[Rfam]
RNA: Small Cajal body specific RNA 4
Organism: Eudromia elegans
RNA sequence: ACUGGAGGACUAAUAAGGUCGAGUUUGAAGAGUGAGACUCGAUUAAUAUUGGCCUCCUAAAGAGAAAGGAUUGGAGAGAGCCGUCCUACUUGCAGAAAAGUACAGGACUGACUGCACUAUCCGACAUUA
Number, nucleotide and partner (000 for none) at each position: 001a000002c000003u059004g057005g056006a055007g054008g053009a000010c000011u000012a000013a000014u000015a000016a000017g044018g043019u042020c000021g040022a039023g038024u037025u036026u035027g000028a000029a000030g000031a000032g000033u000034g000035a026036g025037a024038c023039u022040c021041g000042a019043u018044u017045a000046a000047u000048a000049u000050u000051g000052g000053c008054c007055u006056c005057c004058u000059a003060a000061a000062g000063a000064g000065a000066a000067a000068g122069g121070a120071u119072u000073g000074g000075a000076g000077a000078g000079a113080g112081c110082c000083g108084u107085c106086c105087u104088a000089c000090u000091u102092g101093c100094a000095g000096a000097a000098a000099a000100g093101u092102a091103c000104a087105g086106g085107a084108c083109u000110g081111a000112c080113u079114g000115c000116a000117c000118u000119a071120u070121c069122c068123g000124a000125c000126a000127u000128u000129a000